mir-350 microRNA precursor family: an 87-nucleotide RNA sequence from Rousettus aegyptiacus. On this family, see Chiang et al., Genes Dev 2010: "Mammalian microRNAs: experimental evaluation of novel and previously annotated genes".
RNA sequence: GCUCCUACAAAGGUAAAGUGCAUGCGCUUUGGGACAGUGAGGAAAAUAAUAUUCACAAAGCCCCCACACUUUCACCCUGUAGGAGGG
Number, nucleotide and partner (000 for none) at each position: 001g000002c085003u084004c083005c082006u081007a080008c000009a000010a078011a000012g000013g075014u074015a072016a071017a070018g069019u068020g067021c000022a000023u000024g000025c000026g061027c060028u059029u058030u057031g056032g054033g053034a052035c000036a050037g000038u000039g000040a000041g000042g000043a000044a000045a000046a000047u000048a000049a000050u036051a000052u034053u033054c032055a000056c031057a030058a029059a028060g027061c026062c000063c000064c000065c000066a000067c020068a019069c018070u017071u016072u015073c000074a014075c013076c000077c000078u010079g000080u007081a006082g005083g004084a003085g002086g000087g000